[Rfam]
RNA sequence: GAAAAGAAGGAUGGCAAUACGUUGGCAUAGCAGGUUUUCAAGAUCACAGCUAUGCCAACAUCUUGCCUCCCCUCUAGAUC
Numbered sequence: 001g002a003a004a005a006g007a008a009g010g011a012u013g014g015c016a017a018u019a020c021g022u023u024g025g026c027a028u029a030g031c032a033g034g035u036u037u038u039c040a041a042g043a044u045c046a047c048a049g050c051u052a053u054g055c056c057a058a059c060a061u062c063u064u065g066c067c068u069c070c071c072c073u074c075u076a077g078a079u080c
Base pairs, nucleotide, nucleotide: 005075006074007073009071010070013067014066015065016064017063019061021059023057024056025055026054027053028052029051030050031049
Dot-bracket structure: ....(((.((..(((((.(.(.(((((((((.................))))))))).).).)))))..)).))).....
Shown here is an 80-nucleotide sequence from Eleutherodactylus coqui, a member of the family "mir-31 microRNA precursor family". The organism belongs to Eleutherodactylus, within Eukaryota.